RNA sequence: GUAUUGAAAAGAGGUCGCAUUCGAUAUGAGUAACCGAGCUGAGCUAGUAAGGUAGCAAAGAAGCUGGGCUAAAGGAGAGAAUGCCGAAGCAAGUGAGUUCCUUAAGCUUACUUGCUGGGCCCUAACUGAAUAAGUUAGGGACUGUCGCAGCCUAUGACUGCGGAGCGCUAUUCAGACA
Numbered sequence: 001g002u003a004u005u006g007a008a009a010a011g012a013g014g015u016c017g018c019a020u021u022c023g024a025u026a027u028g029a030g031u032a033a034c035c036g037a038g039c040u041g042a043g044c045u046a047g048u049a050a051g052g053u054a055g056c057a058a059a060g061a062a063g064c065u066g067g068g069c070u071a072a073a074g075g076a077g078a079g080a081a082u083g084c085c086g087a088a089g090c091a092a093g094u095g096a097g098u099u100c101c102u103u104a105a106g107c108u109u110a111c112u113u114g115c116u117g118g119g120c121c122c123u124a125a126c127u128g129a130a131u132a133a134g135u136u137a138g139g140g141a142c143u144g145u146c147g148c149a150g151c152c153u154a155u156g157a158c159u160g161c162g163g164a165g166c167g168c169u170a171u172u173c174a175g176a177c178a
Base pairs, nucleotide, nucleotide: 006173007172008171010169011168017084018083019082020081021080022079025076034068035067037065038064039063040062088116089115090114091113092112093111094110095109096108097107098106099105117143118142120140121139122138123137124136125135126134127133145163146162147161148160149159150158
A member of the RNA family "Lysine riboswitch aptamer" from Ligilactobacillus agilis, 178 nucleotides long. NCBI's taxonomy places the organism under Bacteria, Lactobacillales, Lactobacillaceae, Ligilactobacillus, Ligilactobacillus agilis. A reference for the family is Mandal et al. (2003), "Riboswitches Control Fundamental Biochemical Pathways in Bacillus subtilis and Other Bacteria", Cell.